The record is a 98-nucleotide sequence from Croomia heterosepala, which matches "Plastid-rps12 3UTR RNA" in Rfam. Plastid rpl20 is a non-coding RNA (ncRNA) recognised in plastids. It was found in the three prime untranslated region (3UTR) of rps12 gene, its 3UTR location sugest a role in transcript maduration. Pairs were carried over by alignment from the consensus structure, which was predicted with LocARNA. The source organism's lineage runs through Eukaryota, Viridiplantae, Streptophyta, Spermatophyta and Croomia.

[Rfam]
RNA sequence: GGUUUCCAUUGGCCCAAAUCCAAUCACCUCGAUUUGAGAUGAGAAGCAAUUCCCCAUCGGUAACAAAUGGUUAUCCAUUAAGCGGGGAAAAUGCUAUU
Numbered sequence: 001g002g003u004u005u006c007c008a009u010u011g012g013c014c015c016a017a018a019u020c021c022a023a024u025c026a027c028c029u030c031g032a033u034u035u036g037a038g039a040u041g042a043g044a045a046g047c048a049a050u051u052c053c054c055c056a057u058c059g060g061u062a063a064c065a066a067a068u069g070g071u072u073a074u075c076c077a078u079u080a081a082g083c084g085g086g087g088a089a090a091a092u093g094c095u096a097u098u
Base pairs, nucleotide, nucleotide: 009023010022011021012020052087053086054085055084056078057077059075060074061073062072063071064070